[Rfam]
This 76-nucleotide RNA sequence from Crocodylus porosus belongs to the Rfam family "Mammalian CPEB3 ribozyme". The mammalian CPEB3 ribozyme is a self cleaving RNA located in the second intron of the CPEB3 gene which belongs to a family of genes regulating messenger RNA polyadenylation. The match comes from Rfam's covariance-model search (40 bits).
RNA sequence: AGCUCAAGUUUGAGGCCAUAGCAGAAGCACUUGUGGCUCAGCCUUGUCAGAUUCCAACAAAUCUGCAAAUUCUGCU
Numbered sequence: 001a002g003c004u005c006a007a008g009u010u011u012g013a014g015g016c017c018a019u020a021g022c023a024g025a026a027g028c029a030c031u032u033g034u035g036g037c038u039c040a041g042c043c044u045u046g047u048c049a050g051a052u053u054c055c056a057a058c059a060a061a062u063c064u065g066c067a068a069a070u071u072c073u074g075c076u
Base pairs, nucleotide, nucleotide: 014043015042016041020076021075022074023073024072025071026070027039048065049064050063051062052061053060